[Rfam]
RNA sequence: AGCCUGAUGCCACGUCAACAGUAGCAAAAUGCGAUGACUGAUGAUGCUACGAUUGGGCUGAGAUUGAUCUGGGUAACUUGAGUUUCGCAUCUUGAUAGGAAACUGUGGACUAGAUCAUGAAUUGUUCGUCCAUGGUGCCGUUUCAUGCGAUUACAUUC
Numbered sequence: 001a002g003c004c005u006g007a008u009g010c011c012a013c014g015u016c017a018a019c020a021g022u023a024g025c026a027a028a029a030u031g032c033g034a035u036g037a038c039u040g041a042u043g044a045u046g047c048u049a050c051g052a053u054u055g056g057g058c059u060g061a062g063a064u065u066g067a068u069c070u071g072g073g074u075a076a077c078u079u080g081a082g083u084u085u086c087g088c089a090u091c092u093u094g095a096u097a098g099g100a101a102a103c104u105g106u107g108g109a110c111u112a113g114a115u116c117a118u119g120a121a122u123u124g125u126u127c128g129u130c131c132a133u134g135g136u137g138c139c140g141u142u143u144c145a146u147g148c149g150a151u152u153a154c155a156u157u158c
Base pairs, nucleotide, nucleotide: 002058003057004056005055006054007053008052009050013046014045015044016043017042020039021038022037024032025031026030085150086149087148088147089146098139099138103135104134105133107131108130109129110128
RNA: Small nucleolar RNA snoR2/U65
Organism: Asparagus officinalis